[Rfam]
RNA sequence: UUGCACCUGGCAAGUCCUACACAACCAGCUCCCGUUGAAUCCUCCAGGUCGGGAACGAAGCAAAGGUAUUCGGUCGUAGCGGUGUGAUGUAGGUACUUGCCUUUUU
Numbered sequence: 001u002u003g004c005a006c007c008u009g010g011c012a013a014g015u016c017c018u019a020c021a022c023a024a025c026c027a028g029c030u031c032c033c034g035u036u037g038a039a040u041c042c043u044c045c046a047g048g049u050c051g052g053g054a055a056c057g058a059a060g061c062a063a064a065g066g067u068a069u070u071c072g073g074u075c076g077u078a079g080c081g082g083u084g085u086g087a088u089g090u091a092g093g094u095a096c097u098u099g100c101c102u103u104u105u106u
Base pairs, nucleotide, nucleotide: 009101010100011099012098013097014096015095017092018091019090020089021088022086023085024083025082
RNA: Bacteroidales small SRP
Organism: Croceibacter atlanticus